A member of the RNA family "Pseudomon-Rho RNA" from Pseudomonas protegens, 101 nucleotides long. Taxonomically the source falls in Pseudomonas protegens (Bacteria, Pseudomonadati, Gammaproteobacteria, Pseudomonadaceae). The family's RNA type in Rfam is cis-regulatory element.
RNA sequence: UUCGGCCCCGCACUGGUUUCUCCAUUGCCCCCUGCAAGCCGUCGCCGACGCUCUCCUUUUCGAAUUAGUACGCGAUCCUGUCGCCUUCUCUGCGGCGCGGC
Numbered sequence: 001u002u003c004g005g006c007c008c009c010g011c012a013c014u015g016g017u018u019u020c021u022c023c024a025u026u027g028c029c030c031c032c033u034g035c036a037a038g039c040c041g042u043c044g045c046c047g048a049c050g051c052u053c054u055c056c057u058u059u060u061c062g063a064a065u066u067a068g069u070a071c072g073c074g075a076u077c078c079u080g081u082c083g084c085c086u087u088c089u090c091u092g093c094g095g096c097g098c099g100g101c
Stems, first nucleotide, its partner, number of pairs: 010028003014024002038101004043097005072084005